SAM riboswitch aptamer (S box leader): a 117-nucleotide RNA sequence from Anaerovirgula multivorans. The match comes from Rfam's covariance-model search (83 bits). The organism belongs to Anaerovirgula, within Bacteria. About the family: The SAM riboswitch is found upstream of a number of genes which code for proteins involved in methionine or cysteine biosynthesis in Gram-positive bacteria.
RNA sequence: AUCUUAUCAAGAGAGGUAGAGGGACUGGCCCGAUGAAACCCGGCAACAGCUAGCUUAAAGUAAAGCUUUAGGCUGGAAAUGUGCUAAUUCCUGCAGCGUUAAGCUGAAAGAUAAGAG
Numbered sequence: 001a002u003c004u005u006a007u008c009a010a011g012a013g014a015g016g017u018a019g020a021g022g023g024a025c026u027g028g029c030c031c032g033a034u035g036a037a038a039c040c041c042g043g044c045a046a047c048a049g050c051u052a053g054c055u056u057a058a059a060g061u062a063a064a065g066c067u068u069u070a071g072g073c074u075g076g077a078a079a080u081g082u083g084c085u086a087a088u089u090c091c092u093g094c095a096g097c098g099u100u101a102a103g104c105u106g107a108a109a110g111a112u113a114a115g116a117g
Stems, first nucleotide, its partner, number of pairs: 002116007013041001015040003021031003025093001027091002042085004047081002050076010089109001094106004